[Rfam]
RNA: U11 spliceosomal RNA
RNA sequence: AAUAAGAGCUUCUGCUGUGAGUGGUGUUUACGUGGCAGUGGGACUGCUUGCUGUGCAGAAUCCACUUGAAGAGAUUUUGGAAGCAUAAGUUUCUGUGUGUGGGGAGCAGGUCCCUGUGCCCUC
Number, nucleotide and partner (000 for none) at each position: 001a000002a000003u000004a000005a000006g000007a000008g084009c083010u082011u081012c080013u026014g025015c024016u023017g022018u000019g000020a000021g000022u017023g016024g015025u014026g013027u055028u000029u053030a052031c000032g000033u000034g048035g047036c046037a045038g044039u000040g000041g000042g000043a000044c038045u037046g036047c035048u034049u000050g000051c000052u030053g029054u000055g027056c079057a078058g077059a076060a075061u074062c073063c000064a000065c000066u000067u000068g000069a000070a000071g000072a000073g062074a061075u060076u059077u058078u057079g056080g012081a011082a010083g009084c008085a000086u000087a000088a000089g000090u000091u000092u000093c000094u000095g000096u000097g000098u000099g000100u000101g121102g120103g119104g000105a000106g117107c116108a115109g114110g000111u000112c000113c000114c109115u108116g107117u106118g000119c103120c102121c101122u000123c000